glmS glucosamine-6-phosphate activated ribozyme aptamer: a 160-nucleotide RNA sequence from Exiguobacterium artemiae. The base pairs follow the family's consensus structure, which is taken from published work. By type it is a riboswitch.
RNA sequence: ACAGAAGUGAAAGCGCCAGGGCUGACUAUGUGAUAGGCAGCUGACGAGGUGGGGGUUUAUCGAAUCAUUCGGCGGAUGCCUCCCGGUACCAUGUCAGUACCGUAAACUCAUCUGAAAUCGUUUAAGUGAUUAGACGGACAGGCAGAUGCGUGAUGACAAC
Dot-bracket structure: ...................(((((.((.(...).)).)))))........(((((....((((.....))))......)))))((((((.......))))))....(.((((......(((((((....)))))))........)))).)..........
Numbered sequence: 001a002c003a004g005a006a007g008u009g010a011a012a013g014c015g016c017c018a019g020g021g022c023u024g025a026c027u028a029u030g031u032g033a034u035a036g037g038c039a040g041c042u043g044a045c046g047a048g049g050u051g052g053g054g055g056u057u058u059a060u061c062g063a064a065u066c067a068u069u070c071g072g073c074g075g076a077u078g079c080c081u082c083c084c085g086g087u088a089c090c091a092u093g094u095c096a097g098u099a100c101c102g103u104a105a106a107c108u109c110a111u112c113u114g115a116a117a118u119c120g121u122u123u124a125a126g127u128g129a130u131u132a133g134a135c136g137g138a139c140a141g142g143c144a145g146a147u148g149c150g151u152g153a154u155g156a157c158a159a160c
Stems, first nucleotide, its partner, number of pairs: 020042005026036002029033001051083005060072004084102006107150001109148004119136007